[Rfam]
RNA sequence: UGAUGCCCCUCACCCACAAUUAAAGAUCCCGGGUGGGCGAGGGACUGCGAGGGAUC
Numbered sequence: 001u002g003a004u005g006c007c008c009c010u011c012a013c014c015c016a017c018a019a020u021u022a023a024a025g026a027u028c029c030c031g032g033g034u035g036g037g038c039g040a041g042g043g044a045c046u047g048c049g050a051g052g053g054a055u056c
Stems, first nucleotide, its partner, number of pairs: 007043005013037005025056006
Dot-bracket structure: ......(((((.(((((.......[[[[[[..))))).))))).......]]]]]]
The family of this 56-nucleotide sequence from Notothenia coriiceps is "Antizyme RNA frameshifting stimulation element". The match comes from Rfam's covariance-model search (62 bits). Rfam describes the family as follows. This family represents a structural element which is found in antizyme mRNA and is known to promote frameshifting. Antizyme genes have have two partially overlapping open reading frames, the second, which encodes the functional protein requires +1 translational frameshifting. This frameshift is stimulated by a pseudoknot present 3' of the frameshift site in the antizyme mRNA. The frameshifting efficiency is dependent on the level of polyamines in the cell, when the polyamine concentration is high frameshifting is more likely to occur which leads to an increase in the quantity of functional antizyme produced. The functional antizyme acts to reduce ornithine decarboxylase (ODC) activity which leads to a drop in polyamines present in the cell. Therefore, this family can be thought of as a biosensor for intracellular free polyamines. A reference for the family is Ivanov et al. (2004), "Identification of a new antizyme mRNA +1 frameshifting stimulatory pseudoknot in a subset of diverse invertebrates and its apparent absence in intermediate species", J Mol Biol. The source organism's lineage runs through Eukaryota, Deuterostomia, Neoteleostei, Eupercaria and Notothenia. The base pairs follow the family's consensus structure, which is taken from published work.